[Rfam]
RNA sequence: CUCCCCGAAAUCUAUUUAGGUAGAGCCUCGGACGAACACCAUUGGGGGUAGAGCACUGUUAAGGCUAGGGGGUCAUCCCGACUUACCAACCCUUUGCAAACUCCGAAUACCAAUGAGUGAUAUCCGGGAGACACACGGUGGGUGCUAACGUCCGUCGUGAAGAGGGAAACAACCCAGACCGCCAGCUAAGGUCCCAAAGUCAUAGUUAAGUGGGAAACGAUGUGGAAAGGCCCAGACAGCUAGGAGGUUGGCUUAGAAGCAGCCAUCCUUUAAAGAAAGCGUAAUAGCUCACUAGUCGAGUCGGUCUGCGCGGAAGAUGUAACGGGGCUAAACUAUGCACCGAAGCUGCGGAUUCAAAAUUUAUUUUGAGUGGUAGGGGAGCGUUCUGUAAGCCGUUGAAGGUGAGUUGAGAAGCUUGCUGGAGGUAUCAGAAGUGCGAAU
Numbered sequence: 001c002u003c004c005c006c007g008a009a010a011u012c013u014a015u016u017u018a019g020g021u022a023g024a025g026c027c028u029c030g031g032a033c034g035a036a037c038a039c040c041a042u043u044g045g046g047g048g049u050a051g052a053g054c055a056c057u058g059u060u061a062a063g064g065c066u067a068g069g070g071g072g073u074c075a076u077c078c079c080g081a082c083u084u085a086c087c088a089a090c091c092c093u094u095u096g097c098a099a100a101c102u103c104c105g106a107a108u109a110c111c112a113a114u115g116a117g118u119g120a121u122a123u124c125c126g127g128g129a130g131a132c133a134c135a136c137g138g139u140g141g142g143u144g145c146u147a148a149c150g151u152c153c154g155u156c157g158u159g160a161a162g163a164g165g166g167a168a169a170c171a172a173c174c175c176a177g178a179c180c181g182c183c184a185g186c187u188a189a190g191g192u193c194c195c196a197a198a199g200u201c202a203u204a205g206u207u208a209a210g211u212g213g214g215a216a217a218c219g220a221u222g223u224g225g226a227a228a229g230g231c232c233c234a235g236a237c238a239g240c241u242a243g244g245a246g247g248u249u250g251g252c253u254u255a256g257a258a259g260c261a262g263c264c265a266u267c268c269u270u271u272a273a274a275g276a277a278a279g280c281g282u283a284a285u286a287g288c289u290c291a292c293u294a295g296u297c298g299a300g301u302c303g304g305u306c307u308g309c310g311c312g313g314a315a316g317a318u319g320u321a322a323c324g325g326g327g328c329u330a331a332a333c334u335a336u337g338c339a340c341c342g343a344a345g346c347u348g349c350g351g352a353u354u355c356a357a358a359a360u361u362u363a364u365u366u367u368g369a370g371u372g373g374u375a376g377g378g379g380a381g382c383g384u385u386c387u388g389u390a391a392g393c394c395g396u397u398g399a400a401g402g403u404g405a406g407u408u409g410a411g412a413a414g415c416u417u418g419c420u421g422g423a424g425g426u427a428u429c430a431g432a433a434g435u436g437c438g439a440a441u
Base pairs, nucleotide, nucleotide: 001381002380003379004378005377006376011024012023013022014021015020026130027128028127029126030125031124032123036121040115041114042113043112044111045110051104052102053101057098058097059096061094062093063092064091068087069086070084071083072082073081074080134159135158136157137156138155139154140153141152142151143150164175165174166173179351180350181349182348184347185346186345190341191340192339199338201337202336203335204334205333206332218312219311222309223308224307225306226305229302230301231300239296240295241294242293243292245269246268247267250264251263252262270274275290279288280287352371353370354369355368356367357366358365359364382436384433385432386431387430388429392426393425394424401420402419403418404417405416406415407414408413
Shown here is a 441-nucleotide part of an RNA from Thalassotalea algicola, a member of the family "Bacterial large subunit ribosomal RNA".
A search with the family's covariance model found it, with a score of 2830 bits.
Lineage of the source: Bacteria > Pseudomonadati > Alteromonadales > Colwelliaceae > Thalassotalea.
The family's consensus secondary structure is taken from published work.